[Rfam]
RNA sequence: CUGCAAAUCUAGGGGGACGACGAAGGAGCAUUCACAUCGCGCCGCCUGUCAGGUUUUGUGUGGCCUGUGAAUUCUUCC
Numbered sequence: 001c002u003g004c005a006a007a008u009c010u011a012g013g014g015g016g017a018c019g020a021c022g023a024a025g026g027a028g029c030a031u032u033c034a035c036a037u038c039g040c041g042c043c044g045c046c047u048g049u050c051a052g053g054u055u056u057u058g059u060g061u062g063g064c065c066u067g068u069g070a071a072u073u074c075u076u077c078c
Base pairs, nucleotide, nucleotide: 013046014045016043018041022077023076024075025074026073027072028040029039050067051066052065053064054063055062